[Rfam]
RNA sequence: UGGCUCUGGGUGGGGUGGCGGCCAUUUUUAUCUAACCCUAACUGAGAAGGGCGUAGGCGCCGUGCUUUUGCUCCCCGCGCGCUGUUUUUUUCGCUGACUUUCAGCGGGCGGAAAAGCCUUGGCCUACCGCCGUCCACAGUCCAGUCUGGAGGAAACAAAAAAUGUCAGCCGCUGGCCCGUUCACCCCUCCCGGGAACCUGCGGUGGUCCGCCCGCCCGCCCCCCGAGCCCUGCCUAAAGGCCGCGGUCGGCCUGGGGCUUCUCCGGAGGUACCCAAUGCCGCCGCGAAGAGUUGGGCUCUGUCAGCCGCGGGUCUCUCGGGGGCCAAGGGCGAGGCUUAGGCCUGCUGGCCACAGGGAAAGUAACGGAGUGGGUCCCCGUACGCGGUGCGCUUCCCUGAGCAGUGGGACUUGCACCCGGGACUCGGCUCAGACAUAC
Number, nucleotide and partner (000 for none) at each position: 001u000002g000003g000004c000005u194006c193007u192008g191009g190010g189011u000012g187013g186014g185015g184016u183017g182018g181019c000020g177021g176022c175023c174024a173025u000026u000027u000028u000029u000030a000031u000032c000033u000034a000035a000036c000037c000038c000039u000040a000041a000042c000043u000044g000045a000046g000047a000048a000049g000050g000051g000052c000053g000054u000055a000056g000057g000058c000059g000060c000061c000062g000063u000064g117065c116066u115067u114068u113069u000070g000071c000072u000073c000074c000075c000076c110077g109078c108079g000080c106081g105082c104083u103084g102085u000086u000087u000088u000089u000090u000091u000092c000093g169094c168095u167096g166097a165098c164099u162100u161101u160102c084103a083104g082105c081106g080107g000108g078109c077110g076111g000112a000113a068114a067115a066116g065117c064118c000119u000120u000121g000122g000123c000124c000125u000126a000127c000128c000129g000130c000131c000132g000133u000134c000135c000136a000137c000138a000139g000140u000141c000142c000143a000144g000145u000146c000147u000148g000149g000150a000151g000152g000153a000154a000155a000156c000157a000158a000159a000160a101161a100162a099163u000164g098165u097166c096167a095168g094169c093170c000171g000172c000173u024174g023175g022176c021177c020178c000179g000180u000181u018182c017183a016184c015185c014186c013187c012188u000189c010190c009191c008192g007193g006194g005195a000196a000197c356198c355199u354200g353201c000202g351203g350204u000205g000206g000207u000208c000209c000210g336211c335212c334213c332214g331215c330216c329217c328218g000219c000220c000221c322222c321223c320224c319225g318226a317227g316228c000229c312230c311231u310232g309233c308234c000235u000236a000237a000238a000239g000240g000241c000242c286243g285244c284245g283246g282247u000248c281249g280250g279251c278252c000253u000254g274255g273256g272257g000258c000259u000260u000261c000262u000263c000264c000265g000266g000267a000268g000269g000270u000271a000272c256273c255274c254275a000276a000277u000278g251279c250280c249281g248282c246283c245284g244285c243286g242287a000288a300289g299290a298291g297292u000293u000294g000295g000296g000297c291298u290299c289300u288301g000302u000303c000304a000305g000306c000307c000308g233309c232310g231311g230312g229313u000314c000315u000316c227317u226318c225319g224320g223321g222322g221323g000324c000325c000326a000327a000328g217329g216330g215331c214332g213333a000334g212335g211336c210337u000338u000339a000340g000341g000342c000343c000344u000345g000346c000347u000348g000349g000350c203351c202352a000353c200354a199355g198356g197357g000358a000359a000360a000361g000362u000363a000364a000365c000366g000367g429368a428369g427370u426371g424372g423373g422374u421375c420376c419377c418378c000379g000380u000381a000382c000383g000384c000385g000386g415387u414388g413389c412390g411391c000392u000393u408394c407395c406396c405397u000398g000399a000400g000401c000402a000403g000404u000405g396406g395407g394408a393409c000410u000411u390412g389413c388414a387415c386416c000417c000418g377419g376420g375421a374422c373423u372424c371425g000426g370427c369428u368429c367430a000431g000432a000433c000434a000435u000436a000437c000
RNA: Vertebrate telomerase RNA
Organism: Propithecus coquereli